This 46-nucleotide sequence from Flaviaestuariibacter flavus belongs to the Rfam family "Acido-Lenti-1 RNA". Rfam 15.1 lists 2,607 matches to the family in 171 species. The base pairs follow the family's consensus structure, which is taken from published work. NCBI's taxonomy places the organism under Bacteria, Pseudomonadati, Chitinophagia, Chitinophagaceae, Flaviaestuariibacter.
RNA sequence: CCCGGGGCUGAAGCCCCGGGUUAAGAGGUGCCGCCGCUACGCGGCG
Dot-bracket structure: ((((((((....))))))))............(((((...))))).